[Rfam]
RNA sequence: CUGGUGUUGAUUGUCCAAACGCAAUUCUUGUGGUCCGUCUACAUCCAGGAGUUGUGGAUGGACAUCAUGCCCCAA
Numbered sequence: 001c002u003g004g005u006g007u008u009g010a011u012u013g014u015c016c017a018a019a020c021g022c023a024a025u026u027c028u029u030g031u032g033g034u035c036c037g038u039c040u041a042c043a044u045c046c047a048g049g050a051g052u053u054g055u056g057g058a059u060g061g062a063c064a065u066c067a068u069g070c071c072c073c074a075a
Base pairs, nucleotide, nucleotide: 002074003073004072006070007069008067009066010065011064013063014062015061016060017059020056021055022054023053024052025051026050027049028048029047030046

A member of the RNA family "mir-219 microRNA precursor family" from Oryzias javanicus, 75 nucleotides long.
The family's consensus secondary structure was predicted with RNAalifold.
Its family is annotated with miRNA-mediated post-transcriptional gene silencing and RISC complex in the Gene Ontology.
NCBI's taxonomy places the organism under Eukaryota, Eumetazoa, Acanthomorphata, Ovalentaria, Oryzias.